[Rfam]
Small nucleolar RNA SNORA68: a 131-nucleotide RNA from Plasmodium vivax. It is one of the family's seed sequences. By type it is an H/ACA-box small nucleolar RNA. A reference for the family is Ganot et al. (1997), "The family of box ACA small nucleolar RNAs is defined by an evolutionarily conserved secondary structure and ubiquitous sequence elements essential for RNA accumulation", Genes Dev. The base pairs follow the family's consensus structure, which was predicted with PFOLD. The organism belongs to Plasmodium, within Eukaryota.
RNA sequence: GUUGCACCUAAACCCAAAGAAUCACUGUUUCUUGAAGUGGUGGUUUAAACAGGUGCAAACAGCAAGCGAACCUCAUCACCUUUGGUGGCUGUGGCAGUGCCCCUCAAAGUGAACUUAGAAGCUCUACAUCC
Numbered sequence: 001g002u003u004g005c006a007c008c009u010a011a012a013c014c015c016a017a018a019g020a021a022u023c024a025c026u027g028u029u030u031c032u033u034g035a036a037g038u039g040g041u042g043g044u045u046u047a048a049a050c051a052g053g054u055g056c057a058a059a060c061a062g063c064a065a066g067c068g069a070a071c072c073u074c075a076u077c078a079c080c081u082u083u084g085g086u087g088g089c090u091g092u093g094g095c096a097g098u099g100c101c102c103c104u105c106a107a108a109g110u111g112a113a114c115u116u117a118g119a120a121g122c123u124c125u126a127c128a129u130c131c
Stems, first nucleotide, its partner, number of pairs: 002058008020045010068124002071121001073119002080109005085103001087101003